[Rfam]
RNA sequence: UUUCGGAGUCGGGAUUUUGGGGGCGAGAUGAGCUAAUGAUUUAUCCAACUGGCCCGCAAAGUCCCGCUUCUGGAA
Numbered sequence: 001u002u003u004c005g006g007a008g009u010c011g012g013g014a015u016u017u018u019g020g021g022g023g024c025g026a027g028a029u030g031a032g033c034u035a036a037u038g039a040u041u042u043a044u045c046c047a048a049c050u051g052g053c054c055c056g057c058a059a060a061g062u063c064c065c066g067c068u069u070c071u072g073g074a075a
Stems, first nucleotide, its partner, number of pairs: 003073006010066004015061005021055004026050002029047002

A member of the RNA family "mir-193 microRNA precursor family" from Xenopus tropicalis, 75 nucleotides long. The source organism's lineage runs through Eukaryota, Gnathostomata, Pipidae, Xenopodinae and Silurana. Rfam links the family to the GO terms miRNA-mediated post-transcriptional gene silencing and RISC complex. For this family Rfam cites "Small RNA expression and strain specificity in the rat" (Linsen et al., BMC Genomics, 2010).